The family of this 107-nucleotide sequence from Rhizobium sp. AC44/96 is "Alphaproteobacterial ar15". Rfam 15.1 lists 316 matches to the family in 177 species. Its family is annotated with protein binding in the Gene Ontology. Rfam classes the family as a small RNA. The match comes from Rfam's covariance-model search (58 bits). Its Rfam clan is "suhB sRNA clan". NCBI's taxonomy places the organism under Bacteria, Pseudomonadota, Alphaproteobacteria, Hyphomicrobiales, Rhizobium. On this family, see del Val et al., RNA Biol 2012: "A survey of sRNA families in alpha-proteobacteria".
RNA sequence: AGUUGCUCAUGCAGUCGGCUAGUCCUCCCGGCCGAUGAUGCAACUGUUCCCCUCUGGAGGUUUUGACCUUCAUGACUUCAGCCACCGUCAACAGCGGUGGCUAUUUU
Numbered sequence: 001a002g003u004u005g006c007u008c009a010u011g012c013a014g015u016c017g018g019c020u021a022g023u024c025c026u027c028c029c030g031g032c033c034g035a036u037g038a039u040g041c042a043a044c045u046g047u048u049c050c051c052c053u054c055u056g057g058a059g060g061u062u063u064u065g066a067c068c069u070u071c072a073u074g075a076c077u078u079c080a081g082c083c084a085c086c087g088u089c090a091a092c093a094g095c096g097g098u099g100g101c102u103a104u105u106u107u
Stems, first nucleotide, its partner, number of pairs: 001045005007038002015035004055072007080102006089094001